Rfam assigns this 145-nucleotide RNA sequence from Hansschlegelia quercus to the family "Alphaproteobacterial sRNA ar35".
Pairs were carried over by alignment from the consensus structure.
It scores 59 bits against the family's covariance model.
For this family Rfam cites "A survey of sRNA families in alpha-proteobacteria" (del Val et al., RNA Biol, 2012).
By type it is a small RNA.
Lineage of the source: Bacteria > Alphaproteobacteria > Hyphomicrobiales > Methylopilaceae > Hansschlegelia.
[Rfam]
Nucleotides: 145
Base pairs, nucleotide, nucleotide: 003052004051005050006049007047009045016042017041018040019039020038053107054106055105056104057103058102064096065095066094067093071090072089074088075087076086108144110142111141112140113139114138115137116136117135118134119133120132121131122130123129124128
Number, partner (000 for none) and nucleotide at each position: 001000a002000g003052c004051g005050c006049u007047c008000c009045g010000g011000c012000a013000a014000g015000a016042g017041c018040g019039c020038g021000g022000c023000u024000g025000a026000g027000a028000a029000c030000a031000u032000c033000c034000a035000g036000g037000c038020c039019g040018c041017g042016u043000a044000a045009u046000u047007g048000g049006a050005g051004c052003g053107c054106c055105g056104c057103c058102u059000g060000a061000g062000a063000g064096g065095g066094c067093u068000u069000c070000g071090c072089g073000a074088c075087c076086a077000c078000g079000g080000a081000u082000g083000u084000a085000c086076u087075g088074g089072c090071g091000c092000g093067a094066g095065c096064c097000u098000g099000a100000a101000a102058a103057g104056g105055c106054g107053g108144a109000a110142g111141g112140a113139g114138g115137a116136g117135g118134u119133c120132g121131g122130g123129c124128u125000u126000a127000u128124g129123g130122c131121c132120c133119g134118g135117c136116c137115u138114u139113u140112u141111u142110u143000c144108u145000u